The record is a 195-nucleotide RNA sequence from Silurus meridionalis, which matches "Small nucleolar RNA SNORA81" in Rfam. It is annotated as an H/ACA-box small nucleolar RNA. On this family, see Gu et al., Nucleic Acids Res 2005: "A novel experimental approach for systematic identification of box H/ACA snoRNAs from eukaryotes". A search with the family's covariance model found it, with a score of 75 bits.
[Rfam]
RNA sequence: CCCUUCUUUACCAAAAGCGCCAUGCUAAAAUCAGCAGGCCCGAGCUGUUUCACAGUUUGGUCUUGCUGGUCAUGCUAGUAUGGUACGUCUCGGAGAAGGGAGAGCAAAAUCCCAGCGCAGCGUCGGAAAUGAGAUCAGGAGGGACCUCUUUCUUAAUGUCCUGUGUUCUGUGUCUCGAGAUUCUGCGCUACAUUU
Numbered sequence: 001c002c003c004u005u006c007u008u009u010a011c012c013a014a015a016a017g018c019g020c021c022a023u024g025c026u027a028a029a030a031u032c033a034g035c036a037g038g039c040c041c042g043a044g045c046u047g048u049u050u051c052a053c054a055g056u057u058u059g060g061u062c063u064u065g066c067u068g069g070u071c072a073u074g075c076u077a078g079u080a081u082g083g084u085a086c087g088u089c090u091c092g093g094a095g096a097a098g099g100g101a102g103a104g105c106a107a108a109a110u111c112c113c114a115g116c117g118c119a120g121c122g123u124c125g126g127a128a129a130u131g132a133g134a135u136c137a138g139g140a141g142g143g144a145c146c147u148c149u150u151u152c153u154u155a156a157u158g159u160c161c162u163g164u165g166u167u168c169u170g171u172g173u174c175u176c177g178a179g180a181u182u183c184u185g186c187g188c189u190a191c192a193u194u195u
Stems, first nucleotide, its partner, number of pairs: 020083002023080005030073002033070001037063002040060008114189007122181001137166001139164001141162004